[Rfam]
RNA sequence: CCCGCGACUAGACGAAAAGACCCCGUGCACCUUUACUACAACUUAGUAGUGAAUGUUGACGUGUCAUGCGCAGGAUAGGUGGGAGACGUUGAACCGAGCCUCUUGGGGUUCGGGGAGUCACCGGUGAGAUACCACCCUUGAUACUUUGACGUUCUAACCUCGACCCGUUACCCGGGUCAGGGACACUGCUAGGCGGGUAGUUUGACUGGGGCGGUCGCCUCCUAAACUGUAACGGAGGCGCGCGAAGGUUCGCUCAGGCUGUUUGGAAAUCAGCCGUAGAGUGCAAAGGCAUAAGCGAGCUUGACUGCGAGACAUACACGUCGAGCAGGUGGGAAACCAGGCCUUAGUGAUCCGGUGGUUCCGCAUGGAAGGGCCAUCGCUCAACGGAUAAAAGGUACGCCGGGGAUAACAGGCUGAUCUGGGCCAAGAGUUCACAUCGACGCCCAGGUUUGGCACCUCGAUGUCGGCUCAUCGCAUCCUGGAGCUGUAGCAGGUUCCAAGGGUCCGGCUGUUCGCCGGUUAAAGCGGUACGUGAGCUGGGUUUAGAACGUCGCGAGACAGUUCGGUCUCUAUCUGUCGUGGGCGCA
Numbered sequence: 001c002c003c004g005c006g007a008c009u010a011g012a013c014g015a016a017a018a019g020a021c022c023c024c025g026u027g028c029a030c031c032u033u034u035a036c037u038a039c040a041a042c043u044u045a046g047u048a049g050u051g052a053a054u055g056u057u058g059a060c061g062u063g064u065c066a067u068g069c070g071c072a073g074g075a076u077a078g079g080u081g082g083g084a085g086a087c088g089u090u091g092a093a094c095c096g097a098g099c100c101u102c103u104u105g106g107g108g109u110u111c112g113g114g115g116a117g118u119c120a121c122c123g124g125u126g127a128g129a130u131a132c133c134a135c136c137c138u139u140g141a142u143a144c145u146u147u148g149a150c151g152u153u154c155u156a157a158c159c160u161c162g163a164c165c166c167g168u169u170a171c172c173c174g175g176g177u178c179a180g181g182g183a184c185a186c187u188g189c190u191a192g193g194c195g196g197g198u199a200g201u202u203u204g205a206c207u208g209g210g211g212c213g214g215u216c217g218c219c220u221c222c223u224a225a226a227c228u229g230u231a232a233c234g235g236a237g238g239c240g241c242g243c244g245a246a247g248g249u250u251c252g253c254u255c256a257g258g259c260u261g262u263u264u265g266g267a268a269a270u271c272a273g274c275c276g277u278a279g280a281g282u283g284c285a286a287a288g289g290c291a292u293a294a295g296c297g298a299g300c301u302u303g304a305c306u307g308c309g310a311g312a313c314a315u316a317c318a319c320g321u322c323g324a325g326c327a328g329g330u331g332g333g334a335a336a337c338c339a340g341g342c343c344u345u346a347g348u349g350a351u352c353c354g355g356u357g358g359u360u361c362c363g364c365a366u367g368g369a370a371g372g373g374c375c376a377u378c379g380c381u382c383a384a385c386g387g388a389u390a391a392a393a394g395g396u397a398c399g400c401c402g403g404g405g406a407u408a409a410c411a412g413g414c415u416g417a418u419c420u421g422g423g424c425c426a427a428g429a430g431u432u433c434a435c436a437u438c439g440a441c442g443c444c445c446a447g448g449u450u451u452g453g454c455a456c457c458u459c460g461a462u463g464u465c466g467g468c469u470c471a472u473c474g475c476a477u478c479c480u481g482g483a484g485c486u487g488u489a490g491c492a493g494g495u496u497c498c499a500a501g502g503g504u505c506c507g508g509c510u511g512u513u514c515g516c517c518g519g520u521u522a523a524a525g526c527g528g529u530a531c532g533u534g535a536g537c538u539g540g541g542u543u544u545a546g547a548a549c550g551u552c553g554c555g556a557g558a559c560a561g562u563u564c565g566g567u568c569u570c571u572a573u574c575u576g577u578c579g580u581g582g583g584c585g586c587a
Stems, first nucleotide, its partner, number of pairs: 001583008010575003014570002022404004027400002029396005035201004042193007051154009061144006068137001078136005085119003094113008158181003162178006204216004217239006240385001242342002248300006254280002257275005281290002305328004311322003330339003353379007361372002413454003417451001418448007428438002465540001466538004470532001471529005478503002481498006505519005546564004550559003